[Rfam]
Description: Rfam assigns this 230-nucleotide RNA from Dyella dinghuensis to the family "Manganese Mn2+ riboswitch aptamer (yybP-ykoY)". A reference for the family is Price et al. (2015), "Mn(2+)-sensing mechanisms of yybP-ykoY orphan riboswitches", Mol Cell. This RNA was originally discovered in E. coli during a large scale screen and was named SraF. The family was later found to exist upstream of related families of protein genes in many bacteria, including the the yybP and ykoK genes in B. subtilis. The specific functions of these proteins are unknown, but this structured RNA element may be involved in their genetic regulation as a riboswitch. NCBI's taxonomy places the organism under Bacteria, Pseudomonadati, Pseudomonadota, Rhodanobacteraceae, Dyella. A search with the family's covariance model found it, with a score of 60 bits. The family has 29 seed sequences and 1,126 matches in Rfam 15.1.

RNA sequence: CCCGUUGUCAUUGGGGAGUAGCCAUCCUCGCUGCACAGGGCGCCACGCCUUCGCAUCGGGGAAUCCGCGUCAACACACUUGAAGCCUUGAUGCUUCGUGGCGCGGAUGGUUGUCGCAGAUGCUCACGUCAGCGAUGGUUCGGCGAGACCUUUGGCCACACACGACUCACCCGGCCGGGCGAGCACGUGCGUGCGCCAUUGGUUUUCUCGCUCGCCCGGCCCGGAAUGUUC
Numbered sequence: 001c002c003c004g005u006u007g008u009c010a011u012u013g014g015g016g017a018g019u020a021g022c023c024a025u026c027c028u029c030g031c032u033g034c035a036c037a038g039g040g041c042g043c044c045a046c047g048c049c050u051u052c053g054c055a056u057c058g059g060g061g062a063a064u065c066c067g068c069g070u071c072a073a074c075a076c077a078c079u080u081g082a083a084g085c086c087u088u089g090a091u092g093c094u095u096c097g098u099g100g101c102g103c104g105g106a107u108g109g110u111u112g113u114c115g116c117a118g119a120u121g122c123u124c125a126c127g128u129c130a131g132c133g134a135u136g137g138u139u140c141g142g143c144g145a146g147a148c149c150u151u152u153g154g155c156c157a158c159a160c161a162c163g164a165c166u167c168a169c170c171c172g173g174c175c176g177g178g179c180g181a182g183c184a185c186g187u188g189c190g191u192g193c194g195c196c197a198u199u200g201g202u203u204u205u206c207u208c209g210c211u212c213g214c215c216c217g218g219c220c221c222g223g224a225a226u227g228u229u230c
Stems, first nucleotide, its partner, number of pairs: 025061003063107010080097005108229003113224002